[Rfam]
RNA sequence: AGUUGCUCAUUCACUCUUUUAUGUCAGCGACCGCAAUAGCGAGUCAGGCUACAUAAGCCAUCGAAUGACGCCAAAGUAAGGUGCCUACCGUCCAAUUAUCGAUAACAGUCGCUUAUGCGCUUUAUCAAACUCGGGGCGACACGUUGAGUGAGGCACCACCUA
Numbered sequence: 001a002g003u004u005g006c007u008c009a010u011u012c013a014c015u016c017u018u019u020u021a022u023g024u025c026a027g028c029g030a031c032c033g034c035a036a037u038a039g040c041g042a043g044u045c046a047g048g049c050u051a052c053a054u055a056a057g058c059c060a061u062c063g064a065a066u067g068a069c070g071c072c073a074a075a076g077u078a079a080g081g082u083g084c085c086u087a088c089c090g091u092c093c094a095a096u097u098a099u100c101g102a103u104a105a106c107a108g109u110c111g112c113u114u115a116u117g118c119g120c121u122u123u124a125u126c127a128a129a130c131u132c133g134g135g136g137c138g139a140c141a142c143g144u145u146g147a148g149u150g151a152g153g154c155a156c157c158a159c160c161u162a
Stems, first nucleotide, its partner, number of pairs: 005071002007068006019056006026050003080157007089138005101126005140150003
Glm Y RNA activator of glmS mRNA: a 162-nucleotide RNA sequence from Hafnia alvei. By type it is a small RNA. The family's consensus secondary structure is taken from published work. The match comes from Rfam's covariance-model search (142 bits).